Shown here is a 63-nucleotide RNA from Nitrogeniibacter mangrovi, a member of the family "Betaproteobacteria toxic small RNA". From the family's description: Overexpression in amino aid rich medium attenuates growth, suggesting role in repressing amino acid intake and metabolism. For this family Rfam cites "A vast collection of microbial genes that are toxic to bacteria" (Kimelman et al., Genome Res, 2012).

RNA sequence: UGUCUCCUCCACCCUCCUCCUUUGGUGUGGAUUUAACGCAGCCGACCGGCUGCGUUUUUUUUU
Dot-bracket structure: .......(((((((.........)).)))))...((((((((......)))))))).......